[Rfam]
Rfam assigns this 78-nucleotide RNA sequence from Mytilus coruscus to the family "mir-16 microRNA precursor family". A search with the family's covariance model found it, with a score of 39 bits. Taxonomically the source falls in Mytilus (Eukaryota, Metazoa, Pteriomorphia, Mytilinae). Clan: mir-15 clan. Its family is annotated with miRNA-mediated post-transcriptional gene silencing and RISC complex in the Gene Ontology.
RNA sequence: AACUGUCUCUAGCACACAAAUAAAAUUAGUUUUGUCUAUAUAGACAAAACUAAUUUUAUUUGUGUGCUAGAGACAGUU
Dot-bracket structure: (((.(((..((((((((.(..((((((((....................)))))))).)..)))))))..)))).)))
Numbered sequence: 001a002a003c004u005g006u007c008u009c010u011a012g013c014a015c016a017c018a019a020a021u022a023a024a025a026u027u028a029g030u031u032u033u034g035u036c037u038a039u040a041u042a043g044a045c046a047a048a049a050c051u052a053a054u055u056u057u058a059u060u061u062g063u064g065u066g067c068u069a070g071a072g073a074c075a076g077u078u
Stems, first nucleotide, its partner, number of pairs: 001078003005074003010071001011068007019059001022057008